[Rfam]
Nucleotides: 093
Base pairs, nucleotide, nucleotide: 001093002092003091004090005089006088007087008086010083011082012081013079014078015077016076017075018074019073020072021071023069024068025067026066027065
Number, partner (000 for none) and nucleotide at each position: 001093c002092u003091g004090a005089c006088a007087g008086a009000a010083g011082a012081g013079a014078g015077u016076g017075a018074g019073c020072a021071c022000a023069c024068a025067u026066g027065g028000u029000g030000a031000c032000u033000u034000u035000c036000u037000u038000g039000c040000a041000u042000g043000c044000u045000g046000a047000a048000u049000g050000g051000a052000c053000u054000c055000a056000u057000g058000c059000u060000u061000g062000a063000a064000g065027c066026u067025a068024u069023g070000u071021g072020u073019g074018c075017u076016c077015a078014c079013u080000u081012c082011u083010c084000u085000c086008u087007c088006u089005g090004u091003c092002a093001g
Background: mir-156 microRNA precursor family: a 93-nucleotide RNA sequence from Oryza sativa. Lineage of the source: Eukaryota > Euphyllophyta > Poales > Oryza > Oryza sativa. On this family, see Reinhart et al., Genes Dev 2002: "MicroRNAs in plants". It is one of the family's seed sequences.